The record is an 84-nucleotide sequence from Mus musculus, which matches "mir-541 microRNA precursor family" in Rfam. Taxonomically the source falls in Mus (Eukaryota, Bilateria, Boreoeutheria, Myomorpha). For this family Rfam cites "Assessing the effect of the CLPG mutation on the microRNA catalog of skeletal muscle using high-throughput sequencing" (Caiment et al., Genome Res, 2010). Rfam's curators put it in the seed alignment. The family's consensus secondary structure was predicted with RNAalifold.
[Rfam]
RNA sequence: AAAUCAGAGAAGGGAUUCUGAUGUUGGUCACACUCCAAGAGUUUUAAAAUGAGUGGCGAACACAGAAUCCAUACUCUGCUUAUG
Numbered sequence: 001a002a003a004u005c006a007g008a009g010a011a012g013g014g015a016u017u018c019u020g021a022u023g024u025u026g027g028u029c030a031c032a033c034u035c036c037a038a039g040a041g042u043u044u045u046a047a048a049a050u051g052a053g054u055g056g057c058g059a060a061c062a063c064a065g066a067a068u069c070c071a072u073a074c075u076c077u078g079c080u081u082a083u084g
Base pairs, nucleotide, nucleotide: 001083003081005078006077007076008075009074013070014069015068016067017066018065019064020063022062023061024060025059027057031055032054033053034052035051